[Rfam]
RNA sequence: CCACGGGUCCGGGCCCCGCUGGCGGCCGAGGCGUCGGCCGUGAUGUCGGACCUUCCGU
Numbered sequence: 001c002c003a004c005g006g007g008u009c010c011g012g013g014c015c016c017c018g019c020u021g022g023c024g025g026c027c028g029a030g031g032c033g034u035c036g037g038c039c040g041u042g043a044u045g046u047c048g049g050a051c052c053u054u055c056c057g058u
Stems, first nucleotide, its partner, number of pairs: 006052007022041008
A member of the RNA family "terC RNA" from Skermanella aerolata, 58 nucleotides long. Rfam classes the family as a cis-regulatory element.